[Rfam]
RNA sequence: CGUCGGUUCCAUUCACUACGGAUCGUCCGGCACGUACCUGCCGGUGAAGGAGAAGAAC
Numbered sequence: 001c002g003u004c005g006g007u008u009c010c011a012u013u014c015a016c017u018a019c020g021g022a023u024c025g026u027c028c029g030g031c032a033c034g035u036a037c038c039u040g041c042c043g044g045u046g047a048a049g050g051a052g053a054a055g056a057a058c
Stems, first nucleotide, its partner, number of pairs: 009050002012048004027044006
The record is a 58-nucleotide RNA sequence from Microbacterium barkeri, which matches "msiK RNA" in Rfam.
By type it is a cis-regulatory element.
Taxonomically the source falls in Microbacterium (Bacteria, Bacillati, Actinomycetota, Actinomycetes).